[Rfam]
RNA sequence: GUCACCCAGGACGACAAAUUCCAAUUAUGCGACGAUUUAAGAGGCAUAAUUGAGCCGAUGUCCUGGGAAAUCAUAGAGUUGAAUAUUCGAUUGCCUUAUCUGUAGACAAAUUACGGAUAGGGCUUUGCACGCAACCCACAU
Numbered sequence: 001g002u003c004a005c006c007c008a009g010g011a012c013g014a015c016a017a018a019u020u021c022c023a024a025u026u027a028u029g030c031g032a033c034g035a036u037u038u039a040a041g042a043g044g045c046a047u048a049a050u051u052g053a054g055c056c057g058a059u060g061u062c063c064u065g066g067g068a069a070a071u072c073a074u075a076g077a078g079u080u081g082a083a084u085a086u087u088c089g090a091u092u093g094c095c096u097u098a099u100c101u102g103u104a105g106a107c108a109a110a111u112u113a114c115g116g117a118u119a120g121g122g123c124u125u126u127g128c129a130c131g132c133a134a135c136c137c138a139c140a141u
Base pairs, nucleotide, nucleotide: 005067006066007065008064009063010062011061012060022052023051024050025049026048027047028046029045030044054059081137084133086131089128090126093123094122095121096120099117100116101115102114103113
RNA: Nematode snoRNA ceN125
Organism: Diploscapter pachys